SAM riboswitch aptamer (S box leader): a 101-nucleotide sequence from Propionispora vibrioides. A search with the family's covariance model found it, with a score of 76 bits. The base pairs follow the family's consensus structure, which is taken from published work.

RNA sequence: UACUCAUCAAGAGCAGGUUGAGGGACUGGCCCGAUGAAACUGCGGCAACCGUUAGCUAGACUAAAAAGGUGCCAAAUCCUGUGUUUUACACAAGAUGGGAG
Numbered sequence: 001u002a003c004u005c006a007u008c009a010a011g012a013g014c015a016g017g018u019u020g021a022g023g024g025a026c027u028g029g030c031c032c033g034a035u036g037a038a039a040c041u042g043c044g045g046c047a048a049c050c051g052u053u054a055g056c057u058a059g060a061c062u063a064a065a066a067a068g069g070u071g072c073c074a075a076a077u078c079c080u081g082u083g084u085u086u087u088a089c090a091c092a093a094g095a096u097g098g099g100a101g
Stems, first nucleotide, its partner, number of pairs: 001101001003099006013043004018039001022032003026081001028079002044073004049069002052064003077093001082090003
Annotation: NCBI's taxonomy places the organism under Bacteria, Bacillota, Selenomonadales, Sporomusaceae, Propionispora.